This 73-nucleotide sequence from Aliishimia ponticola belongs to the Rfam family "Singlet oxygen resistance RNA X".
Rfam's curators write: SorX (RSs2461)like SorY is a singlet oxygen induced sRNA that counteracts oxidative stress by targeting mRNA for a transporter in Rhodobacter.
It is annotated as a small RNA.
Lineage of the source: Bacteria > Pseudomonadota > Rhodobacterales > Paracoccaceae > Aliishimia.
The pairing is the family consensus, mapped onto this sequence.
For this family Rfam cites "Regulation of a polyamine transporter by the conserved 3' UTR-derived sRNA SorX confers resistance to singlet oxygen and organic hydroperoxides in Rhodobacter sphaeroides" (Peng et al., RNA Biol, 2016).

RNA sequence: UCCCGCCGCAGGCCCGGGUUAUGGCCUGCACCUCCCUGUUGGAACUGGCCGGGCCUUGUGCCCGGUCUUUUUU
Numbered sequence: 001u002c003c004c005g006c007c008g009c010a011g012g013c014c015c016g017g018g019u020u021a022u023g024g025c026c027u028g029c030a031c032c033u034c035c036c037u038g039u040u041g042g043a044a045c046u047g048g049c050c051g052g053g054c055c056u057u058g059u060g061c062c063c064g065g066u067c068u069u070u071u072u073u
Stems, first nucleotide, its partner, number of pairs: 008029007047067008